[Rfam]
RNA sequence: CAGAAAAAAAGGCAAACUUAUUGAAAGGUAAGGGCGCAAAGUCACAGGUCUAACGCUUUUUAUGCUAUGACGGCUGGAUUACCUGA
Numbered sequence: 001c002a003g004a005a006a007a008a009a010a011g012g013c014a015a016a017c018u019u020a021u022u023g024a025a026a027g028g029u030a031a032g033g034g035c036g037c038a039a040a041g042u043c044a045c046a047g048g049u050c051u052a053a054c055g056c057u058u059u060u061u062a063u064g065c066u067a068u069g070a071c072g073g074c075u076g077g078a079u080u081a082c083c084u085g086a
Stems, first nucleotide, its partner, number of pairs: 012037002017032006040080004045076003048071003055065002058062001
RNA: c-di-GMP-I riboswitch aptamer
Organism: Bacilli bacterium VT-13-104